[Rfam]
The family of this 74-nucleotide sequence from Lichenifustis flavocetrariae is "Makes More Granules Regulator RNA (mmgR)". Lineage of the source: Bacteria > Pseudomonadati > Hyphomicrobiales > Lichenihabitantaceae > Lichenifustis. SuhB later renamed mmgR (makes more granules regulator) was a putative non-coding RNA found multiple times in the Agrobacterium tumefaciens genome and related alpha-proteobacteria. Other non-coding RNAs uncovered in the same analysis include: speF, ybhL, metA, and serC.Several studies inSinorhizobium meliloti showed that suhB element is indeed a non-coding RNA:firstly it was detected on Northern blot and called Sm8RNA, secondly in an RNAseq study referred to as SmelC689.The mutant phenotype's (strain lacking the small RNA) cytoplasm contains higher content of polyhydroxybutyrate (PBH)storage granules than wild type strain. It is annotated as a small RNA.

RNA sequence: GGUUUCUGCCCUUGUUGGGCGUUCCUCCCUAGACUUGGGCCGCCCUGCAAGGGGCGGCCUCUUUCUUGUCAGGC
Number, nucleotide and partner (000 for none) at each position: 001g000002g000003u000004u000005u000006c000007u000008g020009c019010c018011c017012u000013u000014g000015u000016u000017g011018g010019g009020c008021g000022u000023u000024c000025c000026u000027c000028c000029c000030u000031a000032g000033a000034c000035u000036u000037g000038g059039g058040c057041c056042g055043c054044c053045c052046u051047g000048c000049a000050a000051g046052g045053g044054g043055c042056g041057g040058c039059c038060u000061c000062u000063u000064u000065c000066u000067u000068g000069u000070c000071a000072g000073g000074c000